RNA: c-di-AMP riboswitch aptamer (ydaO/yuaA leader)
RNA sequence: GCAGAUCAAGUGCACGAAUCAACAAACUGGCAGAGGCGGAGGAACCACAACCGGCAGUCUUCUGACUGCCUUGGGGUGAAGUCCGUCAGCAGCAAGCCUCUUCCAGCGAAGGAUCCUCACGGGAUAUUUCUGCGCCGAAGCUUGCUUACGGCGGACCGGGUCUUUGCACUCUCUGACCCGAAUCCGACAGCUAACUUCGCAGGCUAUCCAGAGAGGAACC
Numbered sequence: 001g002c003a004g005a006u007c008a009a010g011u012g013c014a015c016g017a018a019u020c021a022a023c024a025a026a027c028u029g030g031c032a033g034a035g036g037c038g039g040a041g042g043a044a045c046c047a048c049a050a051c052c053g054g055c056a057g058u059c060u061u062c063u064g065a066c067u068g069c070c071u072u073g074g075g076g077u078g079a080a081g082u083c084c085g086u087c088a089g090c091a092g093c094a095a096g097c098c099u100c101u102u103c104c105a106g107c108g109a110a111g112g113a114u115c116c117u118c119a120c121g122g123g124a125u126a127u128u129u130c131u132g133c134g135c136c137g138a139a140g141c142u143u144g145c146u147u148a149c150g151g152c153g154g155a156c157c158g159g160g161u162c163u164u165u166g167c168a169c170u171c172u173c174u175g176a177c178c179c180g181a182a183u184c185c186g187a188c189a190g191c192u193a194a195c196u197u198c199g200c201a202g203g204c205u206a207u208c209c210a211g212a213g214a215g216g217a218a219c220c
Stems, first nucleotide, its partner, number of pairs: 012204002019034002036200006046073002074185003082155006158179004
Dot-bracket structure: ...........((.....((............)).((((((....((........................))(((.....((((((..............................................................))))))..((((..............))))...))).........))))))..))................